[Rfam]
RNA sequence: UUAAUUUUACAGCGAAUCACUCAUAUAAUCGCGGGGAUACGGCCCGCAAGUUUCUACCAGAUUACCGUAAAUAAUCUGACUAUGGGUGAGCAAUUGUUUUCG
Numbered sequence: 001u002u003a004a005u006u007u008u009a010c011a012g013c014g015a016a017u018c019a020c021u022c023a024u025a026u027a028a029u030c031g032c033g034g035g036g037a038u039a040c041g042g043c044c045c046g047c048a049a050g051u052u053u054c055u056a057c058c059a060g061a062u063u064a065c066c067g068u069a070a071a072u073a074a075u076c077u078g079a080c081u082a083u084g085g086g087u088g089a090g091c092a093a094u095u096g097u098u099u100u101c102g
Stems, first nucleotide, its partner, number of pairs: 018088008029049001031047005058078007
RNA: Purine riboswitch aptamer
Organism: Caldibacillus thermoamylovorans